[Rfam]
RNA sequence: CACAUGCUCCUUAGAUCCAUCUUUGUUGAGUACCUUUGUGCUGAGUUCUGCUGGAUAACUUUGAGUUUCCAGCAGUUCCAGUCAGAGAUACUCUGCAACUUUUUUUGUUGUACAGUCAAAGAUGCUUGAGUCAUUGGCAUGUGAGAGAAAUAUAACUGCAUGCUAGCUUUCUGUUCUGAUAGAAGUGGCUGUAAAUAUACAAGUCAUUUAUCACUGUCAGGACUUGGCUGGUAUGCAGACAUU
Numbered sequence: 001c002a003c004a005u006g007c008u009c010c011u012u013a014g015a016u017c018c019a020u021c022u023u024u025g026u027u028g029a030g031u032a033c034c035u036u037u038g039u040g041c042u043g044a045g046u047u048c049u050g051c052u053g054g055a056u057a058a059c060u061u062u063g064a065g066u067u068u069c070c071a072g073c074a075g076u077u078c079c080a081g082u083c084a085g086a087g088a089u090a091c092u093c094u095g096c097a098a099c100u101u102u103u104u105u106u107g108u109u110g111u112a113c114a115g116u117c118a119a120a121g122a123u124g125c126u127u128g129a130g131u132c133a134u135u136g137g138c139a140u141g142u143g144a145g146a147g148a149a150a151u152a153u154a155a156c157u158g159c160a161u162g163c164u165a166g167c168u169u170u171c172u173g174u175u176c177u178g179a180u181a182g183a184a185g186u187g188g189c190u191g192u193a194a195a196u197a198u199a200c201a202a203g204u205c206a207u208u209u210a211u212c213a214c215u216g217u218c219a220g221g222a223c224u225u226g227g228c229u230g231g232u233a234u235g236c237a238g239a240c241a242u243u
Stems, first nucleotide, its partner, number of pairs: 002142007010130005018124008028093004034087004040082004045078001048075004054069001057067003095111005156238005163231001165229004175221008186213003191204002